Shown here is a 122-nucleotide RNA from Oryza brachyantha, a member of the family "MIR529 microRNA precursor family". Its family is annotated with miRNA-mediated post-transcriptional gene silencing and RISC complex in the Gene Ontology. A search with the family's covariance model found it, with a score of 98 bits. NCBI's taxonomy places the organism under Eukaryota, Streptophytina, Tracheophyta, Liliopsida, Oryza.

RNA sequence: UCAUCAAGGCUAAAGGAAGAAGAGAGAGAGUACAGCCUUCUAUUAGCUAGCUCACAUUUUCUAGGUAUGAUCUCUUGUGACAAGGCUGUACCCUCUCUCUUCUUCUAUUAGCUUCUUGAUGC
Numbered sequence: 001u002c003a004u005c006a007a008g009g010c011u012a013a014a015g016g017a018a019g020a021a022g023a024g025a026g027a028g029a030g031u032a033c034a035g036c037c038u039u040c041u042a043u044u045a046g047c048u049a050g051c052u053c054a055c056a057u058u059u060u061c062u063a064g065g066u067a068u069g070a071u072c073u074c075u076u077g078u079g080a081c082a083a084g085g086c087u088g089u090a091c092c093c094u095c096u097c098u099c100u101u102c103u104u105c106u107a108u109u110a111g112c113u114u115c116u117u118g119a120u121g122c
Stems, first nucleotide, its partner, number of pairs: 005118002009112001012109002015106014030091009